[Rfam]
RNA: Small nucleolar RNA snoR74
Organism: Hibiscus syriacus
Nucleotides: 128
Base pairs, nucleotide, nucleotide: 005047006046011038012037014035015034016033017032063120064119065118066117067116068115069114076110077109078108079107080106081105
Number, partner (000 for none) and nucleotide at each position: 001000g002000a003000a004000a005047a006046a007000g008000u009000a010000g011038g012037g013000u014035c015034u016033u017032g018000u019000u020000g021000c022000c023000g024000u025000u026000c027000a028000u029000g030000a031000g032017u033016g034015a035014g036000g037012c038011u039000c040000g041000u042000a043000c044000a045000a046006u047005u048000c049000a050000g051000u052000a053000a054000a055000a056000u057000u058000a059000u060000u061000u062000g063120c064119a065118u066117u067116g068115u069114u070000a071000u072000c073000g074000g075000g076110u077109g078108a079107a080106c081105c082000g083000c084000c085000g086000g087000a088000u089000c090000u091000u092000c093000u094000u095000g096000g097000u098000a099000a100000c101000u102000g103000a104000g105081g106080g107079u108078u109077c110076a111000g112000u113000a114069a115068a116067u117066g118065a119064u120063g121000u122000u123000g124000c125000a126000u127000u128000u